Shown here is a 56-nucleotide RNA sequence from Panagrellus redivivus, a member of the family "mir-7927 microRNA precursor family".
Taxonomically the source falls in Panagrellus (Eukaryota, Nematoda, Rhabditida, Panagrolaimidae).
RNA sequence: CGGGGCGCUUCUUUGACUGAUGUUGUUAUGCUUAUCAGUCAUUGAAGUGCUCUGAU
Numbered sequence: 001c002g003g004g005g006c007g008c009u010u011c012u013u014u015g016a017c018u019g020a021u022g023u024u025g026u027u028a029u030g031c032u033u034a035u036c037a038g039u040c041a042u043u044g045a046a047g048u049g050c051u052c053u054g055a056u
Stems, first nucleotide, its partner, number of pairs: 001054011014041009